[Rfam]
RNA sequence: AGAUGAGAUGAUGAAUGAGAUUAAUUUCCCUAUUGGUUUGACUGGCUGACAUGAUGGCCCACACGCUGGACUUCGAGCACCUCAUCC
Numbered sequence: 001a002g003a004u005g006a007g008a009u010g011a012u013g014a015a016u017g018a019g020a021u022u023a024a025u026u027u028c029c030c031u032a033u034u035g036g037u038u039u040g041a042c043u044g045g046c047u048g049a050c051a052u053g054a055u056g057g058c059c060c061a062c063a064c065g066c067u068g069g070a071c072u073u074c075g076a077g078c079a080c081c082u083c084a085u086c087c
Stems, first nucleotide, its partner, number of pairs: 002086004040062001044059004